[Rfam]
RNA sequence: CUCCAGCGACAGGGGCGUCCGCGCAUGCGGUCUGAGAUGAACCCUUUGAACCUGAACCAGUAUGAUGCUGGCGGAGGGAGUCGGGCCGGAUCGGAA
Numbered sequence: 001c002u003c004c005a006g007c008g009a010c011a012g013g014g015g016c017g018u019c020c021g022c023g024c025a026u027g028c029g030g031u032c033u034g035a036g037a038u039g040a041a042c043c044c045u046u047u048g049a050a051c052c053u054g055a056a057c058c059a060g061u062a063u064g065a066u067g068c069u070g071g072c073g074g075a076g077g078g079a080g081u082c083g084g085g086c087c088g089g090a091u092c093g094g095a096a
Stems, first nucleotide, its partner, number of pairs: 007083004011045004016039001017032001019030003051077003057071004
This 96-nucleotide RNA sequence from Tropicimonas sp. IMCC6043 belongs to the Rfam family "TPP riboswitch aptamer (THI element)". A search with the family's covariance model found it, with a score of 55 bits. The base pairs follow the family's consensus structure, which is taken from published work. Rfam's curators write: Vitamin B(1) in its active form thiamin pyrophosphate (TPP) is an essential coenzyme that is synthesised by coupling of pyrimidine and thiazole moieties in bacteria. Taxonomically the source falls in Tropicimonas (Bacteria, Pseudomonadota, Rhodobacterales, Roseobacteraceae).